[Rfam]
RNA: Small nucleolar RNA SNORD47
Organism: Rattus norvegicus
RNA sequence: AACCAACAAUCCAAUGAUUCUGCCAAAUGAUACAAGUGAUAUCACCUUUGAAACCAGUCCAUUUUAUUUCUGAGGUU
Numbered sequence: 001a002a003c004c005a006a007c008a009a010u011c012c013a014a015u016g017a018u019u020c021u022g023c024c025a026a027a028u029g030a031u032a033c034a035a036g037u038g039a040u041a042u043c044a045c046c047u048u049u050g051a052a053a054c055c056a057g058u059c060c061a062u063u064u065u066a067u068u069u070c071u072g073a074g075g076u077u
Stems, first nucleotide, its partner, number of pairs: 001077004